[Rfam]
Shown here is a 204-nucleotide sequence from Eudromia elegans, a member of the family "Small nucleolar RNA SNORA74". Rfam links the family to the GO terms RNA processing and nucleolus. On this family, see Kiss et al., Mol Cell Biol 1996: "Characterization of the intron-encoded U19 RNA, a new mammalian small nucleolar RNA that is not associated with fibrillarin". It is annotated as an H/ACA-box small nucleolar RNA. Pairs were carried over by alignment from the consensus structure, which was predicted with PFOLD.

RNA sequence: UCCAGCGGUAGUCAGCUGCCCGUUGCCGCUCUGUGCAGGGGAUAGUGUUAUGCUGCUGGGAGAGAAACGUGCUGGCAAGUCACGCCUGGUGCUGCUCGUGCUGUUCUAGUGCUAGACAGUGCCAGGUUUUGGCAGCACUCUGCAUGCUCGAGAGUGGAGUAACUCUUUUUCAGUAGAGUUAAUCCUAGAUUGGAUGCAGACAAA
Number, nucleotide and partner (000 for none) at each position: 001u060002c059003c058004a057005g056006c055007g054008g053009u052010a000011g051012u050013c000014a000015g046016c045017u044018g043019c000020c041021c039022g000023u038024u037025g036026c035027c000028g000029c000030u000031c000032u000033g000034u000035g026036c025037a024038g023039g021040g000041g020042a000043u018044a017045g016046u015047g000048u000049u000050a012051u011052g009053c008054u007055g006056c005057u004058g003059g002060g001061a000062g000063a000064g000065a000066a000067a000068c000069g138070u137071g136072c135073u134074g133075g000076c131077a130078a000079g000080u000081c000082a000083c000084g127085c126086c125087u124088g000089g122090u121091g120092c119093u118094g117095c000096u115097c000098g112099u111100g110101c109102u108103g000104u000105u000106c000107u000108a102109g101110u100111g099112c098113u000114a000115g096116a000117c094118a093119g092120u091121g090122c089123c000124a087125g086126g085127u084128u000129u000130u077131g076132g000133c074134a073135g072136c071137a070138c069139u000140c199141u198142g197143c196144a195145u194146g000147c192148u000149c000150g000151a000152g000153a000154g000155u000156g185157g184158a183159g000160u181161a180162a179163c178164u177165c176166u175167u000168u000169u000170u000171c000172a000173g000174u000175a166176g165177a164178g163179u162180u161181a160182a000183u158184c157185c156186u000187a000188g000189a000190u000191u000192g147193g000194a145195u144196g143197c142198a141199g140200a000201c000202a000203a000204a000